[Rfam]
RNA sequence: GCAUGGGUUUGGAUUUAUGGCAAGCCCAUCCCCCUGGGUCUCUCACAGUGCUCAUGCCACAGCAAACUGGCCUUCAACCAUUACCUGGUCUCUGCUCGUAGGCUGCAGGCACUUAAGCAGGUUACGAAGUG
Numbered sequence: 001g002c003a004u005g006g007g008u009u010u011g012g013a014u015u016u017a018u019g020g021c022a023a024g025c026c027c028a029u030c031c032c033c034c035u036g037g038g039u040c041u042c043u044c045a046c047a048g049u050g051c052u053c054a055u056g057c058c059a060c061a062g063c064a065a066a067c068u069g070g071c072c073u074u075c076a077a078c079c080a081u082u083a084c085c086u087g088g089u090c091u092c093u094g095c096u097c098g099u100a101g102g103c104u105g106c107a108g109g110c111a112c113u114u115a116a117g118c119a120g121g122u123u124a125c126g127a128a129g130u131g
Stems, first nucleotide, its partner, number of pairs: 001057008015048002018045003022041001024039001025037002068124006080113001084109002086105006
Rfam assigns this 131-nucleotide sequence from Molossus molossus to the family "Small nucleolar RNA SNORA42/SNORA80 family". It scores 99 bits against the family's covariance model. NCBI's taxonomy places the organism under Eukaryota, Eumetazoa, Chordata, Amniota, Molossus. It is annotated as an H/ACA-box small nucleolar RNA. The members of this family belong to the H/ACA class of snoRNAs that guide the sites of modification of uridines to pseudouridines. Human ACA42 (SNORA42) was cloned from HeLa cells by immunoprecipitation with anti-GAR1 antibody. Its is predicted to guide the pseudouridylation of residues U109 and U572 of 18S rRNA. ACA42 shares the same host gene with ACA26, ACA46, ACA50. This family also includes mammalian snoRNA ACA67 (SNORA80) which was identified by computational screening and its expression in mouse experimentally verified by Northern blot and primer extension analysis.